[Rfam]
RNA sequence: UCCUCUUCAACGCUGCGUUUCUAUGCUACACACGGAGAGACUGCGCGAGCAGCCUCUCAUUUUCCUGGCAUAUGAGAAAUUCGGAGAAUCUGCUUCAACAAAGUUCGUCCGCCGCUUCGCUCGUCCGCGGGCGUCUCGGCGGGUCGCGAGCUCUGCCGGUGACGGCCUGUCGCGAACUCGCGGCUGUAAUUGGCAUCAGAAAAGCAGGGCCUGGGAGGAGCUGCUUGCAGUUUCCUUUUCAGGUUCCUCUGGGAGGGCCAUUACGAAGCUUGUGGGCAAAUCACUUUAGUGCAAUACGCAGCGUGCGGCCUUGCUCUCGGGCGGGCCGUACAAUUCGAUUCACGAUUAUCCUGUUGAGGA
Numbered sequence: 001u002c003c004u005c006u007u008c009a010a011c012g013c014u015g016c017g018u019u020u021c022u023a024u025g026c027u028a029c030a031c032a033c034g035g036a037g038a039g040a041c042u043g044c045g046c047g048a049g050c051a052g053c054c055u056c057u058c059a060u061u062u063u064c065c066u067g068g069c070a071u072a073u074g075a076g077a078a079a080u081u082c083g084g085a086g087a088a089u090c091u092g093c094u095u096c097a098a099c100a101a102a103g104u105u106c107g108u109c110c111g112c113c114g115c116u117u118c119g120c121u122c123g124u125c126c127g128c129g130g131g132c133g134u135c136u137c138g139g140c141g142g143g144u145c146g147c148g149a150g151c152u153c154u155g156c157c158g159g160u161g162a163c164g165g166c167c168u169g170u171c172g173c174g175a176a177c178u179c180g181c182g183g184c185u186g187u188a189a190u191u192g193g194c195a196u197c198a199g200a201a202a203a204g205c206a207g208g209g210c211c212u213g214g215g216a217g218g219a220g221c222u223g224c225u226u227g228c229a230g231u232u233u234c235c236u237u238u239u240c241a242g243g244u245u246c247c248u249c250u251g252g253g254a255g256g257g258c259c260a261u262u263a264c265g266a267a268g269c270u271u272g273u274g275g276g277c278a279a280a281u282c283a284c285u286u287u288a289g290u291g292c293a294a295u296a297c298g299c300a301g302c303g304u305g306c307g308g309c310c311u312u313g314c315u316c317u318c319g320g321g322c323g324g325g326c327c328g329u330a331c332a333a334u335u336c337g338a339u340u341c342a343c344g345a346u347u348a349u350c351c352u353g354u355u356g357a358g359g360a
Stems, first nucleotide, its partner, number of pairs: 001360004008353002012302007022072004035058005082344002084341003091268001155166004169184005186264004192259003207248003303331009